[Rfam]
RNA sequence: UCGAGACAGGGGGACCGUGGCCGAAGCGUGACCGAUAAACUGUUCCACGGACGGCGCCCGGGUGCAGCCCCCGCCGUCCGCCAAUGAUCAGCCAGCAGCCGCUGCAACCCCAGGGAG
Numbered sequence: 001u002c003g004a005g006a007c008a009g010g011g012g013g014a015c016c017g018u019g020g021c022c023g024a025a026g027c028g029u030g031a032c033c034g035a036u037a038a039a040c041u042g043u044u045c046c047a048c049g050g051a052c053g054g055c056g057c058c059c060g061g062g063u064g065c066a067g068c069c070c071c072c073g074c075c076g077u078c079c080g081c082c083a084a085u086g087a088u089c090a091g092c093c094a095g096c097a098g099c100c101g102c103u104g105c106a107a108c109c110c111c112a113g114g115g116a117g
Stems, first nucleotide, its partner, number of pairs: 049079006059073004093104004
Shown here is a 117-nucleotide RNA from Streptomyces viridochromogenes, a member of the family "Streptomyces-metK RNA".
It is one of the family's seed sequences.
The family's consensus secondary structure is taken from published work.